[Rfam]
A member of the RNA family "Plant signal recognition particle RNA" from Triticum aestivum, 303 nucleotides long. Its family is annotated with SRP-dependent cotranslational protein targeting to membrane, signal sequence recognition and signal recognition particle, endoplasmic reticulum targeting in the Gene Ontology.
RNA sequence: GCCGAGCUCAGUUGCGCGAGCUUGUAACCCGAGUGGGGGCAUUAAAGUGAUGAGGACGUUGCCAUAGCGCUGCGGGCUUGGUUUAGUUGUGCUAUUGCUGGCCCGCCCGUUUCAAAUUGCGUAGUGAAUUGUUGGGGCCUAUGCGAAAGCUGAGCCUCAUUGUCCAUAAUGUGGCAGGCAAAGAGUGAGACUGGCUUCACAAAGCAGCGACAACUGACCGCUUCCAACGGUGGAAGGAUAACGGGCUGCUGCACUACUUAGCCGCUUGGGCCUCGCAGCCUACUUCAACGAACCAUCAUUUUU
Numbered sequence: 001g002c003c004g005a006g007c008u009c010a011g012u013u014g015c016g017c018g019a020g021c022u023u024g025u026a027a028c029c030c031g032a033g034u035g036g037g038g039g040c041a042u043u044a045a046a047g048u049g050a051u052g053a054g055g056a057c058g059u060u061g062c063c064a065u066a067g068c069g070c071u072g073c074g075g076g077c078u079u080g081g082u083u084u085a086g087u088u089g090u091g092c093u094a095u096u097g098c099u100g101g102c103c104c105g106c107c108c109g110u111u112u113c114a115a116a117u118u119g120c121g122u123a124g125u126g127a128a129u130u131g132u133u134g135g136g137g138c139c140u141a142u143g144c145g146a147a148a149g150c151u152g153a154g155c156c157u158c159a160u161u162g163u164c165c166a167u168a169a170u171g172u173g174g175c176a177g178g179c180a181a182a183g184a185g186u187g188a189g190a191c192u193g194g195c196u197u198c199a200c201a202a203a204g205c206a207g208c209g210a211c212a213a214c215u216g217a218c219c220g221c222u223u224c225c226a227a228c229g230g231u232g233g234a235a236g237g238a239u240a241a242c243g244g245g246c247u248g249c250u251g252c253a254c255u256a257c258u259u260a261g262c263c264g265c266u267u268g269g270g271c272c273u274c275g276c277a278g279c280c281u282a283c284u285u286c287a288a289c290g291a292a293c294c295a296u297c298a299u300u301u302u303u
Stems, first nucleotide, its partner, number of pairs: 001040003004023006028037003044302009054293001057290005065282003070278007078270002080263004085258003089254003093251002099248007107237002110235005117227003121224001123222003126165001128163002131160001133159006140152002143150002173218001175216003185208002192201002
Pairs were carried over by alignment from the consensus structure, which is taken from published work. Rfam classes the family as a non-coding RNA gene. Clan: SRP clan. The match comes from Rfam's covariance-model search (181 bits).